[Rfam]
RNA sequence: AUGCCUCUGCCGGGAGCGUCCCGUCAGGAGCCUGGAGUCAGGCUCCGCACUCUGGCUCUGCCCGGCGGGUCUCUGGAACUGAGGCGUCAUG
Numbered sequence: 001a002u003g004c005c006u007c008u009g010c011c012g013g014g015a016g017c018g019u020c021c022c023g024u025c026a027g028g029a030g031c032c033u034g035g036a037g038u039c040a041g042g043c044u045c046c047g048c049a050c051u052c053u054g055g056c057u058c059u060g061c062c063c064g065g066c067g068g069g070u071c072u073c074u075g076g077a078a079c080u081g082a083g084g085c086g087u088c089a090u091g
Stems, first nucleotide, its partner, number of pairs: 001087005010065004015059002018056003027048001028045007068080002

dauA ncRNA motif: a 91-nucleotide RNA from Streptomyces atriruber.
The organism belongs to Streptomyces, within Bacteria.
The literature on the family includes a 2024 paper in Nucleic Acids Res by Narunsky et al., "The discovery of novel noncoding RNAs in 50 bacterial genomes".
By type it is a cis-regulatory element.
dauA ncRNA motif was reported as a strong cis regulatory motif candidate, with potential to be a cis regulatory riboswitch type, it have been identified in genomes of the genus Streptomyces.